[Rfam]
RNA sequence: GGUCAUGAGCGUCAGCGACAAGCCCUGGCUCGCUGACCGGCAACCCUCGCUCCGCGGUGGGGUGCUCCAGGUGACGACCGGACCGGACGACUCACUCCGCACGAGCAGUAC
Numbered sequence: 001g002g003u004c005a006u007g008a009g010c011g012u013c014a015g016c017g018a019c020a021a022g023c024c025c026u027g028g029c030u031c032g033c034u035g036a037c038c039g040g041c042a043a044c045c046c047u048c049g050c051u052c053c054g055c056g057g058u059g060g061g062g063u064g065c066u067c068c069a070g071g072u073g074a075c076g077a078c079c080g081g082a083c084c085g086g087a088c089g090a091c092u093c094a095c096u097c098c099g100c101a102c103g104a105g106c107a108g109u110a111c
Base pairs, nucleotide, nucleotide: 001079002078003077004076009038011037012036013035014034015033016032021030022029039066040065041064044062045061046060048057083099085097086096
RNA: SAM (S-adenosyl methionine) riboswitch aptamer
Organism: Streptomyces sp. VN1